RNA sequence: GUGUUUUAAAGGCAAAGCUAGAGAAAUCUAGUGACGCAAAGCUAUAGGGACCAAGGGAGAAGGUCAGCCAGUUGCCACU
Numbered sequence: 001g002u003g004u005u006u007u008a009a010a011g012g013c014a015a016a017g018c019u020a021g022a023g024a025a026a027u028c029u030a031g032u033g034a035c036g037c038a039a040a041g042c043u044a045u046a047g048g049g050a051c052c053a054a055g056g057g058a059g060a061a062g063g064u065c066a067g068c069c070a071g072u073u074g075c076c077a078c079u
Stems, first nucleotide, its partner, number of pairs: 012037002017032006040073004047069002049065003
This 79-nucleotide RNA from Anaeroplasma bactoclasticum belongs to the Rfam family "c-di-GMP-I riboswitch aptamer". It scores 61 bits against the family's covariance model. The family's consensus secondary structure is taken from published work. Taxonomically the source falls in Anaeroplasma (Bacteria, Bacillati, Mycoplasmatota, Anaeroplasmatales).